[Rfam]
RNA: mir-203 microRNA precursor family
Organism: Callorhinchus milii
RNA sequence: GUCCUUUGGGUGCAGUGGUUUUCAACAGUUCAACAGUUCUUUAUUAACAUUGUGAAAUGUUUAGGACCACUUGAUCCAAA
Number, nucleotide and partner (000 for none) at each position: 001g000002u000003c000004c000005u000006u000007u000008g000009g000010g000011u000012g000013c000014a071015g070016u069017g068018g067019u066020u000021u064022u063023c000024a061025a060026c059027a058028g000029u056030u055031c054032a053033a000034c000035a000036g000037u000038u000039c000040u000041u000042u000043a000044u000045u000046a000047a000048c000049a000050u000051u000052g000053u032054g031055a030056a029057a000058u027059g026060u025061u024062u000063a022064g021065g000066a019067c018068c017069a016070c015071u014072u000073g000074a000075u000076c000077c000078a000079a000080a000